[Rfam]
RNA sequence: GUGCAAAUGAUGUAAACUUAAAUUCCACUGAGUGAUGUGAUGUUUCCAAAGGAACCACUGAUGCAC
Number, nucleotide and partner (000 for none) at each position: 001g066002u065003g064004c063005a062006a000007a000008u000009g000010a000011u000012g000013u000014a000015a000016a000017c000018u000019u000020a000021a000022a000023u000024u000025c000026c000027a000028c000029u000030g000031a000032g000033u000034g000035a000036u000037g000038u000039g000040a000041u000042g000043u000044u000045u000046c000047c000048a000049a000050a000051g000052g000053a000054a000055c000056c000057a000058c000059u000060g000061a000062u005063g004064c003065a002066c001

The record is a 66-nucleotide RNA from Pitta sordida, which matches "Small nucleolar RNA SNORD42" in Rfam. The family has 7 seed sequences and 848 matches in Rfam 15.1. The literature on the family includes a 2002 paper in Mol Cell Biol by Galardi et al., "Purified box C/D snoRNPs are able to reproduce site-specific 2'-O-methylation of target RNA in vitro". Rfam classes the family as a C/D-box small nucleolar RNA. From the family's description: snoRNA U42 is found in intron 3 of the ribosomal protein L23a (RPL23a) gene in humans and is also present in mice.